[Rfam]
RNA sequence: AGGUCAUUUCAAAAGAGGGCCAAUGGGACCAAAUCCAGGAGCUCUUAAUGCUGUGGCUAAAGAUUGAGUUCUCCGUAGGAUGUUAAGAGUCACUCAGUGGUACUAUGUUUUCCUGAUGGAGAUACAAGA
Dot-bracket structure: .((((((.......((((((...(..(........).)..))))))......))))))...........(((((..((((.....(.((..(((....))).)).)....))))...))))).......
RNA: Small nucleolar RNA SNORA25